[Rfam]
Rfam assigns this 129-nucleotide RNA sequence from Pelosinus sp. UFO1 to the family "FMN riboswitch aptamer (RFN element)".

RNA sequence: AAACAUCUUCAGGGCAGGGUUUAAUUCCCGACCGGUGGUAAGCAGUGGAUUCUGCAAGCCCACGAACCGCAAGGUUGAUUUGGUGUAAUUCCAAAGCCGACAGUAUAGUCUGGAUGAAAGAAGAUAUAC
Numbered sequence: 001a002a003a004c005a006u007c008u009u010c011a012g013g014g015c016a017g018g019g020u021u022u023a024a025u026u027c028c029c030g031a032c033c034g035g036u037g038g039u040a041a042g043c044a045g046u047g048g049a050u051u052c053u054g055c056a057a058g059c060c061c062a063c064g065a066a067c068c069g070c071a072a073g074g075u076u077g078a079u080u081u082g083g084u085g086u087a088a089u090u091c092c093a094a095a096g097c098c099g100a101c102a103g104u105a106u107a108g109u110c111u112g113g114a115u116g117a118a119a120g121a122a123g124a125u126a127u128a129c
Stems, first nucleotide, its partner, number of pairs: 003127001005125006017029003031109002033099002035063004058097002066075003079095005101112003